[Rfam]
RNA sequence: AGGGCCGAUGAUGCUGUUCAAUUACCUACAUUGUUUGAUUUUCCUGUGAGAAAACAGCUAUAUCUGAGGCCCCU
Numbered sequence: 001a002g003g004g005c006c007g008a009u010g011a012u013g014c015u016g017u018u019c020a021a022u023u024a025c026c027u028a029c030a031u032u033g034u035u036u037g038a039u040u041u042u043c044c045u046g047u048g049a050g051a052a053a054a055c056a057g058c059u060a061u062a063u064c065u066g067a068g069g070c071c072c073c074u
Stems, first nucleotide, its partner, number of pairs: 001074002003071004
RNA: Small nucleolar RNA SNORD34
Organism: Ornithorhynchus anatinus